[Rfam]
RNA sequence: UCCUAAGGGCGCGGGGGGAAUGCCUAGGCGUCAUCAGCAAUUCGAGCGUGGAAGGCUGCGAUAUGUCCGGGGGAGCUGCCCAACGAGCGUCGAUCCCGGAAUCCUCGAGGAAAACCCAGGGAACUGAAACAUCUCAGUACCUGGAGGAGAAGAAAUCAACCGAGACUCCCUCAGUAGCGGCGAGCGAACGGGGACCAGCCCAAACCGAGUGGGUCACCACUCGGGGUCGUGGGACCGGAGCCAUGGAACGAGUCGAAGCGAGCCGAAGCCGUUUGGAAAAUCGCACCAGAGCGGGUGACAGUCCCGUAGGCGAAGCGACGACUCUCCUAUCCGGCACCCAAGUAGGGUCGGGCACGGGAAACCCGGCCUGAAUUCGCGGGGACCAUCCCGCAAGGCUAAGUACUCGAUGACGACCGAUAGCGAACCCAGUAGGGCGACCGAACGGUGGGAAGAACCCCGAUCAGGGGAGGAGACUGAACCUGAAACCCCGCGCCUACAAG
Numbered sequence: 001u002c003c004u005a006a007g008g009g010c011g012c013g014g015g016g017g018g019a020a021u022g023c024c025u026a027g028g029c030g031u032c033a034u035c036a037g038c039a040a041u042u043c044g045a046g047c048g049u050g051g052a053a054g055g056c057u058g059c060g061a062u063a064u065g066u067c068c069g070g071g072g073g074a075g076c077u078g079c080c081c082a083a084c085g086a087g088c089g090u091c092g093a094u095c096c097c098g099g100a101a102u103c104c105u106c107g108a109g110g111a112a113a114a115c116c117c118a119g120g121g122a123a124c125u126g127a128a129a130c131a132u133c134u135c136a137g138u139a140c141c142u143g144g145a146g147g148a149g150a151a152g153a154a155a156u157c158a159a160c161c162g163a164g165a166c167u168c169c170c171u172c173a174g175u176a177g178c179g180g181c182g183a184g185c186g187a188a189c190g191g192g193g194a195c196c197a198g199c200c201c202a203a204a205c206c207g208a209g210u211g212g213g214u215c216a217c218c219a220c221u222c223g224g225g226g227u228c229g230u231g232g233g234a235c236c237g238g239a240g241c242c243a244u245g246g247a248a249c250g251a252g253u254c255g256a257a258g259c260g261a262g263c264c265g266a267a268g269c270c271g272u273u274u275g276g277a278a279a280a281u282c283g284c285a286c287c288a289g290a291g292c293g294g295g296u297g298a299c300a301g302u303c304c305c306g307u308a309g310g311c312g313a314a315g316c317g318a319c320g321a322c323u324c325u326c327c328u329a330u331c332c333g334g335c336a337c338c339c340a341a342g343u344a345g346g347g348u349c350g351g352g353c354a355c356g357g358g359a360a361a362c363c364c365g366g367c368c369u370g371a372a373u374u375c376g377c378g379g380g381g382a383c384c385a386u387c388c389c390g391c392a393a394g395g396c397u398a399a400g401u402a403c404u405c406g407a408u409g410a411c412g413a414c415c416g417a418u419a420g421c422g423a424a425c426c427c428a429g430u431a432g433g434g435c436g437a438c439c440g441a442a443c444g445g446u447g448g449g450a451a452g453a454a455c456c457c458c459g460a461u462c463a464g465g466g467g468a469g470g471a472g473a474c475u476g477a478a479c480c481u482g483a484a485a486c487c488c489c490g491c492g493c494c495u496a497c498a499a500g
Base pairs, nucleotide, nucleotide: 007495008494009493010492011491012490013489014488015487016486022480023445024444027415028414029412030411031410032409033408034407035406036404037403043107044106045105046104047060048059049058066100067099068098069097070096071095072094075088076087077086115146116144117143118142119141120140126133127132156163157162166400167194168193169192170191171190177185178184197397198396199395200394205224206223207222208221209220210219211218231339232338233337236333237332238331239330250324251323252322253321254320255319258316259315262311263310264309268284270283271282273280287291293305294304295303345369346368347367348366349365350364351363352362376391377390378389379388380387432439433438455467456466457465458464
A member of the RNA family "Bacterial large subunit ribosomal RNA" from Paludisphaera borealis, 500 nucleotides of a longer RNA. Pairs were carried over by alignment from the consensus structure, which is taken from published work. Rfam links the family to the GO terms structural constituent of ribosome and ribosome.